[Rfam]
Overview
This 156-nucleotide sequence from Streptomyces bungoensis belongs to the Rfam family "c-di-AMP riboswitch aptamer (ydaO/yuaA leader)". Taxonomically the source falls in Streptomyces (Bacteria, Bacillati, Kitasatosporales, Streptomycetaceae). A search with the family's covariance model found it, with a score of 48 bits. The pairing is the family consensus, mapped onto this sequence. Rfam links the family to the GO terms regulation of gene expression and cyclic-di-AMP binding.
RNA sequence: CACACAUGACCCGUGUCCGGCAGGAGCGGGGGACCCACCACGCAGGACCGCCUGCCACGGUCUCCGUGACAGACCAGGGGUGAUGCCGCGCACCGUGCGGCCGGGCAGCUCCAGCCCGAACCCGGCAGCUCACCUCGCAGGCGCCGGAGAGGAAUG
Number, nucleotide and partner (000 for none) at each position: 001c000002a000003c000004a000005c000006a000007u000008g000009a000010c000011c141012c140013g000014u000015g000016u025017c024018c023019g000020g000021c000022a000023g018024g017025a016026g138027c137028g136029g135030g134031g133032g000033a000034c000035c000036c077037a000038c000039c000040a000041c000042g000043c000044a000045g000046g000047a000048c000049c000050g000051c000052c000053u000054g000055c000056c000057a000058c000059g000060g000061u000062c000063u000064c000065c000066g000067u000068g000069a000070c000071a000072g000073a000074c000075c000076a000077g036078g123079g122080g121081u000082g000083a000084u000085g000086c100087c099088g098089c097090g000091c000092a000093c000094c000095g000096u000097g089098c088099g087100g086101c000102c000103g117104g116105g115106c114107a000108g000109c000110u000111c000112c000113a000114g106115c105116c104117c103118g000119a000120a000121c080122c079123c078124g000125g000126c000127a000128g000129c000130u000131c000132a000133c031134c030135u029136c028137g027138c026139a000140g012141g011142c000143g000144c000145c000146g000147g000148a000149g000150a000151g000152g000153a000154a000155u000156g000